[Rfam]
RNA sequence: GGCGAUAAACGAGCGUCGGAAUAAGCUUUUCGGACCCGGGGGCGGUACCCGGCGCCUCCACCACAGCCCUGCAGCGCAAGCUUUGGGGCGGCCUGCGGGAUCUUGGACCGCGGGCUGGCCAGGCCAGUCAAAUGGCAGGGUUGCGGCGGGGGCGAAAUAGGAUCGACGAGAGUGUAAAGGCCGUUCUUUUGCCCGGUAUGGUUCCGCCGUUAUAGGGCUAACGCAUAGUUGCCAACGACAACAAUGCUCGGGUUGCUGUCGCCGCGUAA
Numbered sequence: 001g002g003c004g005a006u007a008a009a010c011g012a013g014c015g016u017c018g019g020a021a022u023a024a025g026c027u028u029u030u031c032g033g034a035c036c037c038g039g040g041g042g043c044g045g046u047a048c049c050c051g052g053c054g055c056c057u058c059c060a061c062c063a064c065a066g067c068c069c070u071g072c073a074g075c076g077c078a079a080g081c082u083u084u085g086g087g088g089c090g091g092c093c094u095g096c097g098g099g100a101u102c103u104u105g106g107a108c109c110g111c112g113g114g115c116u117g118g119c120c121a122g123g124c125c126a127g128u129c130a131a132a133u134g135g136c137a138g139g140g141u142u143g144c145g146g147c148g149g150g151g152g153c154g155a156a157a158u159a160g161g162a163u164c165g166a167c168g169a170g171a172g173u174g175u176a177a178a179g180g181c182c183g184u185u186c187u188u189u190u191g192c193c194c195g196g197u198a199u200g201g202u203u204c205c206g207c208c209g210u211u212a213u214a215g216g217g218c219u220a221a222c223g224c225a226u227a228g229u230u231g232c233c234a235a236c237g238a239c240a241a242c243a244a245u246g247c248u249c250g251g252g253u254u255g256c257u258g259u260c261g262c263c264g265c266g267u268a269a
Stems, first nucleotide, its partner, number of pairs: 001193005014183002017180001026172003030169003036052005053154007194209004